[Rfam]
RNA sequence: CACAUUAGUGGCAAUGGUGUCUGCCGGAAACCGCCUUUAUACAAAGGAUGAUGGCGCCUGUAUCAAG
Numbered sequence: 001c002a003c004a005u006u007a008g009u010g011g012c013a014a015u016g017g018u019g020u021c022u023g024c025c026g027g028a029a030a031c032c033g034c035c036u037u038u039a040u041a042c043a044a045a046g047g048a049u050g051a052u053g054g055c056g057c058c059u060g061u062a063u064c065a066a067g
Stems, first nucleotide, its partner, number of pairs: 010025004016058006034047005
RNA: Fluoride riboswitch aptamer (crcB RNA motif)
Organism: Sinomicrobium soli